[Rfam]
RNA sequence: GAGUUGCAUCAAGAGCGAGGCCUUGCCUCCGCCAACCUGCCCAACCCGGCAAGGUGGUCGCCUGAAAGGGGAUGUGGCCAGAUCGGCAAACAAGGGUAGGCCU
Numbered sequence: 001g002a003g004u005u006g007c008a009u010c011a012a013g014a015g016c017g018a019g020g021c022c023u024u025g026c027c028u029c030c031g032c033c034a035a036c037c038u039g040c041c042c043a044a045c046c047c048g049g050c051a052a053g054g055u056g057g058u059c060g061c062c063u064g065a066a067a068g069g070g071g072a073u074g075u076g077g078c079c080a081g082a083u084c085g086g087c088a089a090a091c092a093a094g095g096g097u098a099g100g101c102c103u
Stems, first nucleotide, its partner, number of pairs: 006075005015030001017029005031058003036054003039050003046096002077087003

Description: Shown here is a 103-nucleotide sequence from Rhodobacteraceae bacterium EhC02, a member of the family "SAM-I/IV (S-adenosyl methionine) riboswitch aptamer". Pairs were carried over by alignment from the consensus structure, which is taken from published work. NCBI's taxonomy places the organism under Bacteria, Pseudomonadati, Pseudomonadota, Alphaproteobacteria, Paracoccaceae. Gene Ontology terms of the family: S-adenosylmethionine metabolic process and regulation of gene expression.